[Rfam]
RNA sequence: CUUUGCGGGGAUCGCCCCCCACCAGCGCGUUGCGCCCGUGGGGGCGAUUGGC
Number, nucleotide and partner (000 for none) at each position: 001c000002u000003u000004u000005g000006c000007g000008g000009g000010g000011a000012u000013c000014g000015c000016c044017c043018c042019c041020c040021a039022c038023c000024a000025g035026c034027g033028c032029g000030u000031u000032g028033c027034g026035c025036c000037c000038g022039u021040g020041g019042g018043g017044g016045c000046g000047a000048u000049u000050g000051g000052c000
This 52-nucleotide sequence from Profundibacterium mesophilum belongs to the Rfam family "ffh sRNA". By type it is a small RNA. The literature on the family includes a 2009 paper in BMC Genomics by Meyer et al., "Identification of candidate structured RNAs in the marine organism 'Candidatus Pelagibacter ubique'". Taxonomically the source falls in Profundibacterium mesophilum (Bacteria, Alphaproteobacteria, Rhodobacterales, Roseobacteraceae). The base pairs follow the family's consensus structure, which is taken from published work. The match comes from Rfam's covariance-model search (63 bits).